[Rfam]
RNA sequence: GAGUUUAUCGUGUGCGCAAGUUUUUGGGUGUUAAAAACCUAAAAGCGAAAUGAAAGUAAAUGGCUCUUUAGAGUCUGAUGUGCGAUCUUGUUAAAAAGUGCAGCAUGGCCCCAUUCUAACUGUUUACAGUAGGGUGGCGGAAGAGCGUACGCGGUGAGACCCGAAAGAUGGUGAACUAUUCCUGAGCAGGACGAAGCCAGAGGAAACUCUGGUGGAAGUCCGAAGCGGUUCUGACGUGCAAAUCGAUCGUCUGACUUGGGUAUAGGGGCGAAAGACUAAUCGAACCAUCUAGUAGCUGGUU
Numbered sequence: 001g002a003g004u005u006u007a008u009c010g011u012g013u014g015c016g017c018a019a020g021u022u023u024u025u026g027g028g029u030g031u032u033a034a035a036a037a038c039c040u041a042a043a044a045g046c047g048a049a050a051u052g053a054a055a056g057u058a059a060a061u062g063g064c065u066c067u068u069u070a071g072a073g074u075c076u077g078a079u080g081u082g083c084g085a086u087c088u089u090g091u092u093a094a095a096a097a098g099u100g101c102a103g104c105a106u107g108g109c110c111c112c113a114u115u116c117u118a119a120c121u122g123u124u125u126a127c128a129g130u131a132g133g134g135u136g137g138c139g140g141a142a143g144a145g146c147g148u149a150c151g152c153g154g155u156g157a158g159a160c161c162c163g164a165a166a167g168a169u170g171g172u173g174a175a176c177u178a179u180u181c182c183u184g185a186g187c188a189g190g191a192c193g194a195a196g197c198c199a200g201a202g203g204a205a206a207c208u209c210u211g212g213u214g215g216a217a218g219u220c221c222g223a224a225g226c227g228g229u230u231c232u233g234a235c236g237u238g239c240a241a242a243u244c245g246a247u248c249g250u251c252u253g254a255c256u257u258g259g260g261u262a263u264a265g266g267g268g269c270g271a272a273a274g275a276c277u278a279a280u281c282g283a284a285c286c287a288u289c290u291a292g293u294a295g296c297u298g299g300u301u
Base pairs, nucleotide, nucleotide: 005157006156007155008154009153010152011151012150013149014148015147016146017145020046021045022044025041026040027039028038029037050057051056079107080106081105082104083103087098088097109140110139111137112136113135114133115132121126160299161298163296167289168288169287170286171285172284176265177264178263179262181260182259183258184257185256186255187253189221190220191219192218196213197212198211199210200209201208202207225250226249227248228247230246231245233244234243267277268276

This 301-nucleotide part of an RNA from Meloidogyne incognita belongs to the Rfam family "Eukaryotic large subunit ribosomal RNA". Gene Ontology terms of the family: structural constituent of ribosome and ribosome.